Eukaryotic small subunit ribosomal RNA: a 541-nucleotide part of an RNA from Lepisma saccharinum.

RNA sequence: UAAAGUUGCUGCGGUUAAAAAGCUCGUAGUUGGAUCUGGGUCUCGGGCGGUCGGUUCGCCGUCAGCGUGUCAACUGGCCGUACCGGACGUCUUCUCGGUUUCCCCGGUCUGCUCUUCACCGAGUGGACCGGGGGAUUCCGGGACGUUUACUUUGAACAAAUUAAAGUGCUCAAAGCAGGCUAUUCGCCUGGAUGCUGGUUGCAUGGAAUAAUGGAACAGGACCUCGGUUCUCUCUGUUGGUUUUCGAACCAGAGGUAAUGAUUAAAAGGGAUUGACGGGGGCUUGAGUAUUGCGAGGGGAGAGGUGAAAUUCUAGGAUCCUCGCAAGACUACCUACAGCGAAAGCAUUUGCCAAGAAUGUCUUCAUUAAUCAAGAACGAAAGUUAGAGGUUCGAAGGCGAUUAGAUACCGCCCUAGUUCUAACCAUAAACGAUGCCAUCCAGCGAUGCGCAAGGUUCAAGAACACCGUGCGCGCAGCCCCGGAAACCUGAGAUUUCGGGUUCCGGGGGGAGUAUGGUUGCAAAGCUGAAACUUAAAGGAAU
Numbered sequence: 001u002a003a004a005g006u007u008g009c010u011g012c013g014g015u016u017a018a019a020a021a022g023c024u025c026g027u028a029g030u031u032g033g034a035u036c037u038g039g040g041u042c043u044c045g046g047g048c049g050g051u052c053g054g055u056u057c058g059c060c061g062u063c064a065g066c067g068u069g070u071c072a073a074c075u076g077g078c079c080g081u082a083c084c085g086g087a088c089g090u091c092u093u094c095u096c097g098g099u100u101u102c103c104c105c106g107g108u109c110u111g112c113u114c115u116u117c118a119c120c121g122a123g124u125g126g127a128c129c130g131g132g133g134g135a136u137u138c139c140g141g142g143a144c145g146u147u148u149a150c151u152u153u154g155a156a157c158a159a160a161u162u163a164a165a166g167u168g169c170u171c172a173a174a175g176c177a178g179g180c181u182a183u184u185c186g187c188c189u190g191g192a193u194g195c196u197g198g199u200u201g202c203a204u205g206g207a208a209u210a211a212u213g214g215a216a217c218a219g220g221a222c223c224u225c226g227g228u229u230c231u232c233u234c235u236g237u238u239g240g241u242u243u244u245c246g247a248a249c250c251a252g253a254g255g256u257a258a259u260g261a262u263u264a265a266a267a268g269g270g271a272u273u274g275a276c277g278g279g280g281g282c283u284u285g286a287g288u289a290u291u292g293c294g295a296g297g298g299g300a301g302a303g304g305u306g307a308a309a310u311u312c313u314a315g316g317a318u319c320c321u322c323g324c325a326a327g328a329c330u331a332c333c334u335a336c337a338g339c340g341a342a343a344g345c346a347u348u349u350g351c352c353a354a355g356a357a358u359g360u361c362u363u364c365a366u367u368a369a370u371c372a373a374g375a376a377c378g379a380a381a382g383u384u385a386g387a388g389g390u391u392c393g394a395a396g397g398c399g400a401u402u403a404g405a406u407a408c409c410g411c412c413c414u415a416g417u418u419c420u421a422a423c424c425a426u427a428a429a430c431g432a433u434g435c436c437a438u439c440c441a442g443c444g445a446u447g448c449g450c451a452a453g454g455u456u457c458a459a460g461a462a463c464a465c466c467g468u469g470c471g472c473g474c475a476g477c478c479c480c481g482g483a484a485a486c487c488u489g490a491g492a493u494u495u496c497g498g499g500u501u502c503c504g505g506g507g508g509g510a511g512u513a514u515g516g517u518u519g520c521a522a523a524g525c526u527g528a529a530a531c532u533u534a535a536a537g538g539a540a541u
Stems, first nucleotide, its partner, number of pairs: 012504003020501001022377001024375002029370003268364003272359001276355001280352003285347001286330002290326008301312003338345002382423006392416001396412004434500003437493003442477002446473006453466003481487002506533003515526004
The family is grouped with related families in Rfam's "SSU clan".
Rfam links the family to the GO terms ribosome and structural constituent of ribosome.
Pairs were carried over by alignment from the consensus structure, which is taken from published work.
Lineage of the source: Eukaryota > Ecdysozoa > Pancrustacea > Dicondylia > Lepisma.
The literature on the family includes a 2002 paper in BMC Bioinformatics by Cannone et al., "The comparative RNA web (CRW) site: an online database of comparative sequence and structure information for ribosomal, intron, and other RNAs".